[Rfam]
RNA sequence: AUCCCGAUGAGGAAGAACACCCCUAAUAGAUAGGAAGUGCCGUAUGACACUCCAAAACGGCGAGCGCGGGGUGUUCACUCGCCGUCGCUAACCCCUUUUCUCCAUCCACCGAUCUCGUCCGUCUCCUUUGUGGAGCCUCUCGGGAUCGGUCGGGGACUGUGGUCGGUCGACGGCGGUCGAGUGGCCCCCCCUAGCCGUGGGUGAUUUGAAACGGGUCUCUGAGGGUU
Numbered sequence: 001a002u003c004c005c006g007a008u009g010a011g012g013a014a015g016a017a018c019a020c021c022c023c024u025a026a027u028a029g030a031u032a033g034g035a036a037g038u039g040c041c042g043u044a045u046g047a048c049a050c051u052c053c054a055a056a057a058c059g060g061c062g063a064g065c066g067c068g069g070g071g072u073g074u075u076c077a078c079u080c081g082c083c084g085u086c087g088c089u090a091a092c093c094c095c096u097u098u099u100c101u102c103c104a105u106c107c108a109c110c111g112a113u114c115u116c117g118u119c120c121g122u123c124u125c126c127u128u129u130g131u132g133g134a135g136c137c138u139c140u141c142g143g144g145a146u147c148g149g150u151c152g153g154g155g156a157c158u159g160u161g162g163u164c165g166g167u168c169g170a171c172g173g174c175g176g177u178c179g180a181g182u183g184g185c186c187c188c189c190c191c192u193a194g195c196c197g198u199g200g201g202u203g204a205u206u207u208g209a210a211a212c213g214g215g216u217c218u219c220u221g222a223g224g225g226u227u
Stems, first nucleotide, its partner, number of pairs: 001227001003225003079176009089165001091163003095159001099156004
RNA: Small nucleolar RNA Z112